[Rfam]
RNA sequence: GGGGCCCUGCUGAUCCGAAGGCCUGCGUCCCAACGCGGGGUAGUGGUAGGAGAAGCGGGGCGCC
Numbered sequence: 001g002g003g004g005c006c007c008u009g010c011u012g013a014u015c016c017g018a019a020g021g022c023c024u025g026c027g028u029c030c031c032a033a034c035g036c037g038g039g040g041u042a043g044u045g046g047u048a049g050g051a052g053a054a055g056c057g058g059g060g061c062g063c064c
Base pairs, nucleotide, nucleotide: 001064002063004061005060006059007058008057009056010055011054014051015050016049020041022039023038024037025036026035027034028033

The record is a 64-nucleotide sequence from Flavonifractor sp. An52, which matches "DUF3800-VIII RNA" in Rfam. The family's consensus secondary structure is taken from published work. A search with the family's covariance model found it, with a score of 59 bits.